[Rfam]
RNA sequence: AGCCUCCCGGUAUUUAACACAGCUGUGUUCUUACACUGACUGUGCAGAAAGAGAAGGAAAUAAACCUACCCCAUGUGCAUUUCAGCCCCGGGCCCUGCGCCUCGUCUAUAUUGUGAAUAGGGAAAUAUGG
Number, nucleotide and partner (000 for none) at each position: 001a000002g000003c057004c056005u055006c000007c053008c000009g000010g000011u000012a000013u000014u000015u000016a000017a000018c000019a000020c042021a041022g040023c000024u000025g036026u035027g034028u033029u000030c000031u000032u000033a028034c027035a026036c025037u000038g000039a000040c022041u021042g020043u000044g000045c000046a000047g000048a000049a000050a000051g000052a000053g007054a000055a005056g004057g003058a000059a000060a000061u000062a000063a000064a000065c000066c000067u000068a000069c122070c121071c120072c000073a118074u117075g000076u000077g000078c000079a000080u000081u000082u000083c000084a107085g106086c000087c104088c000089c000090g101091g100092g000093c000094c000095c000096u000097g000098c000099g000100c091101c090102u000103c000104g087105u000106c085107u084108a000109u000110a000111u000112u000113g000114u000115g000116a000117a074118u073119a000120g071121g070122g069123a000124a000125a000126u000127a000128u000129g000130g000

Description
Small nucleolar RNA SNORA51: a 130-nucleotide RNA sequence from Chlorocebus sabaeus. Gene Ontology terms of the family: RNA processing and nucleolus. The family has 9 seed sequences and 2,121 matches in Rfam 15.1. From the family's description: ACA51 is a member of the H/ACA class of snoRNA that guide the sites of modification of uridines to pseudouridines. The organism belongs to Chlorocebus, within Eukaryota. The match comes from Rfam's covariance-model search (95 bits). By type it is an H/ACA-box small nucleolar RNA.